[Rfam]
RNA: Molybdenum/Tungsten riboswitch aptamer (Moco RNA motif)
RNA sequence: UUCCCGAUAAAACUCCUAGCCUUUGCGUCUAAGUUCCUGAUGAAUAUGAUGUUCUGGCCGUGGCCUUGAGUCACCAGGGUGCGAGAUAGAAAUGUCUGCAUCUCCCGUAUUUGGAAAGGUGUGAAUAUGCAGCAACU
Dot-bracket structure: .....(.....((.((..(((...(((((...((((.....))))..)))))...))).(((((.....)))))..((((((.(((((....)))))))))))((.......))...)).)).....).........